[Rfam]
RNA sequence: GAUAGGCCGCUGCCGCUACUGUGAUUGGACACUGACGCAGAGUCAACUAGCCUUGUCCAGGCGGUGCUUCAUGCGGGGAGUGGCGGAGAGCGCAUGGAGAACCGGGGCGGUCCGAGCCACGAGGGGGGAGGCUCGGACCGCCAGGC
Numbered sequence: 001g002a003u004a005g006g007c008c009g010c011u012g013c014c015g016c017u018a019c020u021g022u023g024a025u026u027g028g029a030c031a032c033u034g035a036c037g038c039a040g041a042g043u044c045a046a047c048u049a050g051c052c053u054u055g056u057c058c059a060g061g062c063g064g065u066g067c068u069u070c071a072u073g074c075g076g077g078g079a080g081u082g083g084c085g086g087a088g089a090g091c092g093c094a095u096g097g098a099g100a101a102c103c104g105g106g107g108c109g110g111u112c113c114g115a116g117c118c119a120c121g122a123g124g125g126g127g128g129a130g131g132c133u134c135g136g137a138c139c140g141c142c143a144g145g146c
Stems, first nucleotide, its partner, number of pairs: 001014001003012003015051004021032003033045004058096002061093003106142013120127001

Description:
Rfam assigns this 146-nucleotide RNA sequence from Streptomyces sp. TSRI0281 to the family "Streptomyces RNA 3920". The pairing is the family consensus, mapped onto this sequence. The literature on the family includes a 2011 paper in RNA Biol by Vockenhuber et al., "Deep sequencing-based identification of small non-coding RNAs in Streptomyces coelicolor". Taxonomically the source falls in Streptomyces (Bacteria, Actinomycetes, Kitasatosporales, Streptomycetaceae). A search with the family's covariance model found it, with a score of 105 bits.